Notes: A member of the RNA family "7SK RNA" from Jaculus jaculus, 329 nucleotides long.
RNA sequence: GGAUGUAAGGGCAAUCUGGCUGCAACAUUUUUCACCCACUGACCGUCAGGGUUGAUUCGGCUGAUCUGGCUGGUUAGGUGGGUGUCCCCUUCCUCCCUCACCACUCCGUGUGCGUCCCUCCUGAAGCUGCGUGCUCGUCGAAGAGGACCACUUUCCCCGAAUAGAGGAGGACCGGUCUUUGGUCUAGGGUAUACGAGUAGCUACACUUCCCUGCUUGAAUCUCCAAACAAGCUCUCAAGGUCCAUUUUAGGAGUAUGUAGGGUAGUCAAGCUUCCAAGACUCCAGACACAACCAAAUGAGGCGCUGCAUGUGGCAGUCUGCCUUUGUUU
Numbered sequence: 001g002g003a004u005g006u007a008a009g010g011g012c013a014a015u016c017u018g019g020c021u022g023c024a025a026c027a028u029u030u031u032u033c034a035c036c037c038a039c040u041g042a043c044c045g046u047c048a049g050g051g052u053u054g055a056u057u058c059g060g061c062u063g064a065u066c067u068g069g070c071u072g073g074u075u076a077g078g079u080g081g082g083u084g085u086c087c088c089c090u091u092c093c094u095c096c097c098u099c100a101c102c103a104c105u106c107c108g109u110g111u112g113c114g115u116c117c118c119u120c121c122u123g124a125a126g127c128u129g130c131g132u133g134c135u136c137g138u139c140g141a142a143g144a145g146g147a148c149c150a151c152u153u154u155c156c157c158c159g160a161a162u163a164g165a166g167g168a169g170g171a172c173c174g175g176u177c178u179u180u181g182g183u184c185u186a187g188g189g190u191a192u193a194c195g196a197g198u199a200g201c202u203a204c205a206c207u208u209c210c211c212u213g214c215u216u217g218a219a220u221c222u223c224c225a226a227a228c229a230a231g232c233u234c235u236c237a238a239g240g241u242c243c244a245u246u247u248u249a250g251g252a253g254u255a256u257g258u259a260g261g262g263u264a265g266u267c268a269a270g271c272u273u274c275c276a277a278g279a280c281u282c283c284a285g286a287c288a289c290a291a292c293c294a295a296a297u298g299a300g301g302c303g304c305u306g307c308a309u310g311u312g313g314c315a316g317u318c319u320g321c322c323u324u325u326g327u328u329u
Stems, first nucleotide, its partner, number of pairs: 001107003005101002008098004014091001018089002025085006032078002035073001036069003041066002044063001045061003115170002117167004121137001123136002126134002138160003145156003200271003206265002209262006221253004227248001229247003294329003298324005303317005
The match comes from Rfam's covariance-model search (308 bits).
NCBI's taxonomy places the organism under Eukaryota, Amniota, Glires, Dipodoidea, Jaculus.
7SK was discovered as an abundant small nuclear RNA in the mid-70s but a possible function has only recently been suggested. Two independent studies have found that 7SK RNA binds the CDK9/cyclin T complex (known as elongation factor P-TEFb). P-TEFb activates transcription by phosphorylating the C-terminal domain of RNA polymerase II. This process is negatively regulated by the 7SK RNP. The secondary structure of 7SK RNA shown here was proposed by Wasserman and Steitz on the basis of chemical modification and enzymatic cleavage experiments.